Rfam assigns this 98-nucleotide RNA from Allopontixanthobacter confluentis to the family "Glycine riboswitch aptamer". It scores 65 bits against the family's covariance model. The source organism's lineage runs through Bacteria, Pseudomonadati, Pseudomonadota, Alphaproteobacteria and Allopontixanthobacter.
[Rfam]
RNA sequence: GGCCAUAUCGCGGGAGAGAUCGUGUGCUUUUGCCGGCACAUGGCGCCGAAGGAGCAACCGCCCCGGAAACUCUCAGGCAAACGGACCGCGAUGUGGCA
Numbered sequence: 001g002g003c004c005a006u007a008u009c010g011c012g013g014g015a016g017a018g019a020u021c022g023u024g025u026g027c028u029u030u031u032g033c034c035g036g037c038a039c040a041u042g043g044c045g046c047c048g049a050a051g052g053a054g055c056a057a058c059c060g061c062c063c064c065g066g067a068a069a070c071u072c073u074c075a076g077g078c079a080a081a082c083g084g085a086c087c088g089c090g091a092u093g094u095g096g097c098a
Base pairs, nucleotide, nucleotide: 006093007092008091009090010089011088012087013086020043021042022041023040024039025038026037027036028035045078046077047076048074049073052072053071054070058066059065